[Rfam]
The family of this 81-nucleotide RNA sequence from Aquarana catesbeiana is "Small nucleolar RNA SNORD79". The base pairs follow the family's consensus structure, which was predicted with PFOLD. On this family, see Galardi et al., Mol Cell Biol 2002: "Purified box C/D snoRNPs are able to reproduce site-specific 2'-O-methylation of target RNA in vitro". The family has 28 seed sequences and 784 matches in Rfam 15.1. Taxonomically the source falls in Aquarana (Eukaryota, Craniata, Euteleostomi, Sarcopterygii). Gene Ontology terms of the family: nucleolus and RNA processing. Rfam's curators write: snoRNA U79 or Z22 is found in intron 7 of the gas5 gene in humans and is also present in mice.
RNA sequence: GGCUGUAAAUGAUGACUUGAAAUAAUCAAUGGGAAUCUCUCUGAAAAAAGACUGAGGGAAAUCUUCUACUCUGAUACCGUG
Number, nucleotide and partner (000 for none) at each position: 001g000002g080003c079004u000005g077006u076007a075008a000009a000010u000011g000012a000013u000014g000015a000016c000017u000018u000019g000020a000021a000022a000023u000024a000025a000026u000027c000028a000029a000030u000031g000032g000033g000034a000035a000036u000037c000038u000039c000040u000041c000042u000043g000044a000045a000046a000047a000048a000049a000050g000051a000052c000053u000054g000055a000056g000057g000058g000059a000060a000061a000062u000063c000064u000065u000066c000067u000068a000069c000070u000071c000072u000073g000074a000075u007076a006077c005078c000079g003080u002081g000